Purine riboswitch aptamer: a 98-nucleotide RNA from Clostridium ljungdahlii. The match comes from Rfam's covariance-model search (62 bits). The family's consensus secondary structure is taken from published work. Taxonomically the source falls in Clostridium (Bacteria, Bacillati, Bacillota, Eubacteriales).

[Rfam]
RNA sequence: GUGAAUAUCUUUUGUCCAGCUCAUAUAUACCCUCAAUAAGGAAGGGAGUAUCUACCGGAAGCCGUAAAUUUCUGACUAUGAGCGGAAUUAUUAUGGUA
Number, nucleotide and partner (000 for none) at each position: 001g000002u000003g000004a000005a000006u000007a000008u000009c000010u000011u000012u000013u000014g000015u000016c000017c000018a000019g083020c082021u081022c080023a079024u078025a077026u000027a000028u000029a000030c046031c045032c044033u043034c000035a000036a000037u000038a000039a000040g000041g000042a000043a033044g032045g031046g030047a000048g000049u000050a000051u000052c000053u000054a000055c000056c074057g073058g072059a071060a070061g069062c000063c000064g000065u000066a000067a000068a000069u061070u060071u059072c058073u057074g056075a000076c000077u025078a024079u023080g022081a021082g020083c019084g000085g000086a000087a000088u000089u000090a000091u000092u000093a000094u000095g000096g000097u000098a000